[Rfam]
Record summary: Shown here is a 112-nucleotide RNA from Ohtaekwangia koreensis, a member of the family "SAM riboswitch aptamer (S box leader)". A search with the family's covariance model found it, with a score of 70 bits. The source organism's lineage runs through Bacteria, Pseudomonadati, Bacteroidota, Fulvivirgaceae and Ohtaekwangia. The base pairs follow the family's consensus structure, which is taken from published work.
RNA sequence: AUUUUAUACAGAAGGGAGUAGAGAAUAGGCUCAGCGAUCCCCUAGCAACCUAUCAGCUGCCAAGCUGAAAAGGUGCUAAUUCCUACCAAUAAAAAAAUUGGAACUAUAAAAU
Numbered sequence: 001a002u003u004u005u006a007u008a009c010a011g012a013a014g015g016g017a018g019u020a021g022a023g024a025a026u027a028g029g030c031u032c033a034g035c036g037a038u039c040c041c042c043u044a045g046c047a048a049c050c051u052a053u054c055a056g057c058u059g060c061c062a063a064g065c066u067g068a069a070a071a072g073g074u075g076c077u078a079a080u081u082c083c084u085a086c087c088a089a090u091a092a093a094a095a096a097a098u099u100g101g102a103a104c105u106a107u108a109a110a111a112u
Stems, first nucleotide, its partner, number of pairs: 001112008013043004021032003026085004044077004049073002051069001053067001086101005
Dot-bracket structure: ((((((((....((((....(((..[[[[))).......))))((((.(((.(.............).)..))))))....]]]](((((......)))))...))))))))